[Rfam]
RNA sequence: ACGACCUUACUUGAACAGGAUCUGUUCUAUAGGCUCGUACCUCUGUAUCCUUGAUUUCUAAGGAGACAGGCCCCUAAACCUGGUUGAUGAAUCAUAGCCGUGCGAUCUGAGUGUGAUUAACGGUUACGAUUCUCCUCGGAGUCUCUGCACUGUAGAGGAUCGCUAUCCGGUUAGGUUUGACCUCUCCGGGGUGGUCGCACGGUUGUCUGACAGGCC
Numbered sequence: 001a002c003g004a005c006c007u008u009a010c011u012u013g014a015a016c017a018g019g020a021u022c023u024g025u026u027c028u029a030u031a032g033g034c035u036c037g038u039a040c041c042u043c044u045g046u047a048u049c050c051u052u053g054a055u056u057u058c059u060a061a062g063g064a065g066a067c068a069g070g071c072c073c074c075u076a077a078a079c080c081u082g083g084u085u086g087a088u089g090a091a092u093c094a095u096a097g098c099c100g101u102g103c104g105a106u107c108u109g110a111g112u113g114u115g116a117u118u119a120a121c122g123g124u125u126a127c128g129a130u131u132c133u134c135c136u137c138g139g140a141g142u143c144u145c146u147g148c149a150c151u152g153u154a155g156a157g158g159a160u161c162g163c164u165a166u167c168c169g170g171u172u173a174g175g176u177u178u179g180a181c182c183u184c185u186c187c188g189g190g191g192u193g194g195u196c197g198c199a200c201g202g203u204u205g206u207c208u209g210a211c212a213g214g215c216c
Stems, first nucleotide, its partner, number of pairs: 001038002003035001005033003013027006043069004048064006079214004097203011110164004120153005128145002132141003166190005173183003
The record is a 216-nucleotide RNA sequence from Brassica rapa, which matches "Plant small nucleolar RNA U3" in Rfam.
It is annotated as a C/D-box small nucleolar RNA.
Its Rfam clan is "U3 clan".
Rfam's curators write: Small nucleolar RNAs (snoRNAs) are involved in the processing and modification of rRNA in the nucleolus. There are two main classes of snoRNAs: the box C/D class, and the box H/ACA class. U3 snoRNA is a member of the box C/D class. Indeed, the box C/D element is a subset of the six short sequence elements found in all U3 snoRNAs, namely boxes A, A', B, C, C', and D. The U3 snoRNA secondary structure is characterised by a small 5' domain (with boxes A and A'), and a larger 3' domain (with boxes B, C, C', and D), the two domains being linked by a single-stranded hinge.
NCBI's taxonomy places the organism under Eukaryota, Viridiplantae, Streptophyta, Magnoliopsida, Brassica rapa.
It is one of the family's seed sequences.
Rfam 15.1 lists 3,759 matches to the family in 258 species.